RNA sequence: GCCGGUCCUCGGUAGUGGUUUCCGGGAAUGUGAGCCUGGUCGACGAGCACAGACGAGAACAGUCGAGCAGAGACCGGCAGAGACCGGCGCAGACCAGCCCCGGAGACUUCGAUCGAUGGCCGGC
Numbered sequence: 001g002c003c004g005g006u007c008c009u010c011g012g013u014a015g016u017g018g019u020u021u022c023c024g025g026g027a028a029u030g031u032g033a034g035c036c037u038g039g040u041c042g043a044c045g046a047g048c049a050c051a052g053a054c055g056a057g058a059a060c061a062g063u064c065g066a067g068c069a070g071a072g073a074c075c076g077g078c079a080g081a082g083a084c085c086g087g088c089g090c091a092g093a094c095c096a097g098c099c100c101c102g103g104a105g106a107c108u109u110c111g112a113u114c115g116a117u118g119g120c121c122g123g124c
Base pairs, nucleotide, nucleotide: 001124002123003122004121005120006119007118009116010115011114012113013112017108018107019106020105021104022103023102024101025100026099
This 124-nucleotide RNA sequence from Haloechinothrix alba belongs to the Rfam family "Actino-pnp RNA". The family's consensus secondary structure is taken from published work. It is annotated as a cis-regulatory element. NCBI's taxonomy places the organism under Bacteria, Actinomycetes, Pseudonocardiales, Pseudonocardiaceae, Haloechinothrix.